Rfam assigns this 93-nucleotide RNA from Botryotinia calthae to the family "tRNA".
The family's consensus secondary structure is taken from published work.
Its family is annotated with triplet codon-amino acid adaptor activity in the Gene Ontology.

RNA sequence: GCAGCUUUGGCCGAGCGGUCUAAGGCGAUGGUCUUAAGUUUCUUAAGCACACCAUUAUCGAAAGAUGCGUGGGUUCGAACCCCACAGGCUGCA
Numbered sequence: 001g002c003a004g005c006u007u008u009g010g011c012c013g014a015g016c017g018g019u020c021u022a023a024g025g026c027g028a029u030g031g032u033c034u035u036a037a038g039u040u041u042c043u044u045a046a047g048c049a050c051a052c053c054a055u056u057a058u059c060g061a062a063a064g065a066u067g068c069g070u071g072g073g074u075u076c077g078a079a080c081c082c083c084a085c086a087g088g089c090u091g092c093a
Base pairs, nucleotide, nucleotide: 001092002091003090004089005088006087007086010026011025012024028055029054030053031052032051069085070084071083072082073081